The record is a 77-nucleotide sequence from Jiangella asiatica, which matches "Actino-pnp RNA" in Rfam. The organism belongs to Jiangella, within Bacteria. The family's consensus secondary structure is taken from published work.
RNA sequence: GCCGGUCCUCGGUUGUGGCUCUCGGGCCCCGGCGGGCAUCCGCCGGGCGAGUCCGCGGGCUUCCAUCGAAGACCGGU
Numbered sequence: 001g002c003c004g005g006u007c008c009u010c011g012g013u014u015g016u017g018g019c020u021c022u023c024g025g026g027c028c029c030c031g032g033c034g035g036g037c038a039u040c041c042g043c044c045g046g047g048c049g050a051g052u053c054c055g056c057g058g059g060c061u062u063c064c065a066u067c068g069a070a071g072a073c074c075g076g077u
Base pairs, nucleotide, nucleotide: 001077002076003075004074005073006072007071009069010068011067012066013065017061018060019059020058021057023055024054025053026052027051029049